[Rfam]
RNA sequence: GCAGUCGGUCGGUCUGUCGCUGGUACAUUAUUAUAAUGGUAAAAGAGGAAAGUCCGGGCAACGCAGAGCAUCCUACUUCCUAACAGAAAGCUGUCCGUAAGGGUAGAGUAAUGCAGAAGAAAAUAACCGCCUCCACCCGGAGGUAAGGGUGAGAAGGUAGGGUAAGAGCCUACCAGCCGUAUAGCGAUAUGCGGGCUGUGCAUCUUAGGAGUUGUAAGGUCAUGUAAACCGGCACUAACGAGGGUUGCUCGCCCCACGUCGGAGGGUGGACCGCUAGAGCCUGUCGGUGACGGCAGGAGUAGAUAAAUGACAGACUCCCCUGCUUGCAGGGUGACAGAACCCGGCUUAUAGACCGGCUGCUUUC
Number, nucleotide and partner (000 for none) at each position: 001g360002c359003a358004g357005u356006c355007g354008g353009u352010c351011g349012g315013u314014c313015u312016g311017u310018c309019g000020c045021u044022g000023g000024u041025a040026c039027a000028u000029u000030a000031u000032u000033a000034u000035a000036a000037u000038g000039g026040u025041a024042a000043a000044a021045g020046a000047g000048g000049a000050a347051a346052g345053u000054c344055c343056g342057g341058g340059c214060a213061a212062c211063g000064c000065a000066g250067a249068g248069c247070a000071u210072c209073c208074u207075a206076c090077u089078u088079c000080c086081u000082a000083a000084c000085a000086g080087a000088a078089a077090g076091c106092u000093g104094u103095c102096c101097g000098u000099a000100a000101g096102g095103g094104u093105a000106g091107a205108g204109u000110a000111a203112u202113g201114c200115a199116g000117a000118a000119g000120a000121a000122a000123a000124u000125a000126a000127c148128c147129g144130c143131c142132u141133c140134c139135a000136c000137c000138c000139g134140g133141a132142g131143g130144u129145a000146a000147g128148g127149g000150u000151g000152a000153g000154a000155a000156g174157g173158u172159a171160g170161g169162g000163u000164a000165a000166g000167a000168g000169c161170c160171u159172a158173c157174c156175a000176g196177c194178c193179g192180u191181a190182u189183a188184g000185c000186g000187a000188u183189a182190u181191g180192c179193g178194g177195g000196c176197u000198g000199u115200g114201c113202a112203u111204c108205u107206u075207a074208g073209g072210a071211g062212u061213u060214g059215u000216a000217a000218g272219g271220u270221c269222a000223u000224g000225u000226a000227a000228a000229c262230c261231g260232g259233c258234a000235c000236u000237a000238a000239c000240g000241a000242g254243g253244g252245u251246u000247g069248c068249u067250c066251g245252c244253c243254c242255c000256a000257c000258g233259u232260c231261g230262g229263a000264g000265g000266g000267u000268g000269g221270a220271c219272c218273g000274c000275u000276a000277g000278a000279g000280c297281c296282u295283g294284u293285c292286g291287g000288u000289g000290a000291c286292g285293g284294c283295a282296g281297g280298a000299g000300u000301a000302g000303a000304u000305a000306a000307a000308u000309g018310a017311c016312a015313g014314a013315c012316u000317c000318c000319c000320c000321u000322g000323c000324u000325u000326g000327c000328a000329g000330g000331g000332u000333g000334a000335c000336a000337g000338a000339a000340c058341c057342c056343g055344g054345c052346u051347u050348a000349u011350a000351g010352a009353c008354c007355g006356g005357c004358u003359g002360c001361u000362u000363u000364c000

Bacterial RNase P class A: a 364-nucleotide RNA from Phocaeicola plebeius. Taxonomically the source falls in Phocaeicola plebeius (Bacteria, Pseudomonadati, Bacteroidia, Bacteroidales).